U1 spliceosomal RNA: a 162-nucleotide sequence from Eucalyptus grandis. About the family: U1 is a small nuclear RNA (snRNA) component of the spliceosome (involved in pre-mRNA splicing). Its 5' end forms complementary base pairs with the 5' splice junction, thus defining the 5' donor site of an intron. The organism belongs to Eucalyptus, within Eukaryota.
RNA sequence: UCACUUACCUGGACGGGGUCAAUGGGCUAUCAAGAAAGCUCAUGGCCUGGGUCUAGUGACCUCCAUUGCACUUCGGGAGGGGUGCUAGCCCAAGGUCGGUCCAAGUGGCCGAGCCUACGUCAUGAUUUGUGGCAGUGGGGCCUGCGUUCGCGCGGCCCCUAC
Number, nucleotide and partner (000 for none) at each position: 001u000002c000003a000004c000005u000006u000007a000008c000009c000010u000011g000012g121013a120014c119015g118016g048017g047018g046019u045020c044021a043022a000023u042024g041025g040026g039027c038028u000029a000030u000031c000032a000033a000034g000035a000036a000037a000038g027039c026040u025041c024042a023043u021044g020045g019046c018047c017048u016049g091050g090051g089052u088053c000054u087055a000056g000057u000058g000059a000060c080061c079062u078063c076064c075065a000066u000067u000068g000069c000070a000071c000072u000073u000074c000075g064076g063077g000078a062079g061080g060081g000082g000083u000084g000085c000086u000087a054088g052089c051090c050091c049092a000093a116094g115095g114096u112097c111098g110099g000100u108101c107102c000103a000104a000105g000106u000107g101108g100109c000110c098111g097112a096113g000114c095115c094116u093117a000118c015119g014120u013121c012122a000123u000124g000125a000126u000127u000128u000129g000130u000131g000132g000133c000134a000135g000136u161137g160138g159139g158140g157141c000142c000143u154144g153145c152146g151147u000148u000149c000150g000151c146152g145153c144154g143155g000156c000157c140158c139159c138160u137161a136162c000